[Rfam]
RNA sequence: CAGGGACCAGGCCUGGAGGGCCUACCCAGCCCUCCCCUGGGUAAAACCCAGGCCGAUGGGUUCGGAGGCCGAAACCCACGUAUUGGUAUGUGUAGUAGGUCAGGGAUUACGCCGGUACCUCGAUGAUAGCCGGUCCCCUGGGGCGUCCACGCCGUAGCCGGUCAACCGUAGGGUUGACUGGUUACGGAACCCGGCGAACCGGGUUAGGCCCGGGAGGGAGCGGCCCUAAGUCGGGGUGGGCGCGUUCAGGGGGUUGCCGGUUGGAGAAUGGGCCGGCGUAAUCCCUGACCUACUACACAUACCAAUACGUGGGGUUGGGUCCCGC
Numbered sequence: 001c002a003g004g005g006a007c008c009a010g011g012c013c014u015g016g017a018g019g020g021c022c023u024a025c026c027c028a029g030c031c032c033u034c035c036c037c038u039g040g041g042u043a044a045a046a047c048c049c050a051g052g053c054c055g056a057u058g059g060g061u062u063c064g065g066a067g068g069c070c071g072a073a074a075c076c077c078a079c080g081u082a083u084u085g086g087u088a089u090g091u092g093u094a095g096u097a098g099g100u101c102a103g104g105g106a107u108u109a110c111g112c113c114g115g116u117a118c119c120u121c122g123a124u125g126a127u128a129g130c131c132g133g134u135c136c137c138c139u140g141g142g143g144c145g146u147c148c149a150c151g152c153c154g155u156a157g158c159c160g161g162u163c164a165a166c167c168g169u170a171g172g173g174u175u176g177a178c179u180g181g182u183u184a185c186g187g188a189a190c191c192c193g194g195c196g197a198a199c200c201g202g203g204u205u206a207g208g209c210c211c212g213g214g215a216g217g218g219a220g221c222g223g224c225c226c227u228a229a230g231u232c233g234g235g236g237u238g239g240g241c242g243c244g245u246u247c248a249g250g251g252g253g254u255u256g257c258c259g260g261u262u263g264g265a266g267a268a269u270g271g272g273c274c275g276g277c278g279u280a281a282u283c284c285c286u287g288a289c290c291u292a293c294u295a296c297a298c299a300u301a302c303c304a305a306u307a308c309g310u311g312g313g314g315u316u317g318g319g320u321c322c323c324g325c
Stems, first nucleotide, its partner, number of pairs: 003323006010070005015035007045062005072316002075313013089299003094294012108280009118270001120267002127263008135252008143243008152187016191234005201226004209218003

Rfam assigns this 325-nucleotide RNA from Vulcanisaeta distributa to the family "Archaeal signal recognition particle RNA". It is annotated as a non-coding RNA gene. Gene Ontology terms of the family: signal recognition particle, plasma membrane targeting and SRP-dependent cotranslational protein targeting to membrane, signal sequence recognition. NCBI's taxonomy places the organism under Archaea, Thermoproteales, Thermoproteaceae, Vulcanisaeta, Vulcanisaeta distributa. The literature on the family includes a 2002 paper in Curr Opin Struct Biol by Wild et al., "Towards the structure of the mammalian signal recognition particle".